[Rfam]
The family of this 135-nucleotide RNA from Felis catus is "Small nucleolar RNA U109". Gene Ontology terms of the family: nucleolus and RNA processing. The family has 26 seed sequences and 1,405 matches in Rfam 15.1.
RNA sequence: UGGCAUGUGGAAAUGUCUGCUCCUCAUUCCUUUGGGAGCAGGAAGACAUCCAUUACAUGCUACAUUGAAAAAGGAGUUCUCAGGGCUGCCAGCCUUACAGUAGAGGCUGAGUAGUAGUAUAUUUCUCCUACAUAG
Numbered sequence: 001u002g003g004c005a006u007g008u009g010g011a012a013a014u015g016u017c018u019g020c021u022c023c024u025c026a027u028u029c030c031u032u033u034g035g036g037a038g039c040a041g042g043a044a045g046a047c048a049u050c051c052a053u054u055a056c057a058u059g060c061u062a063c064a065u066u067g068a069a070a071a072a073g074g075a076g077u078u079c080u081c082a083g084g085g086c087u088g089c090c091a092g093c094c095u096u097a098c099a100g101u102a103g104a105g106g107c108u109g110a111g112u113a114g115u116a117g118u119a120u121a122u123u124u125c126u127c128c129u130a131c132a133u134a135g
Base pairs, nucleotide, nucleotide: 003060004059005058006057007056008055016042017041018040019039020038021037022036023035073128074127075126076125085115086114089111090109091108092107093106094105095104096103

The family's consensus secondary structure was predicted with WAR. For this family Rfam cites "A novel experimental approach for systematic identification of box H/ACA snoRNAs from eukaryotes" (Gu et al., Nucleic Acids Res, 2005).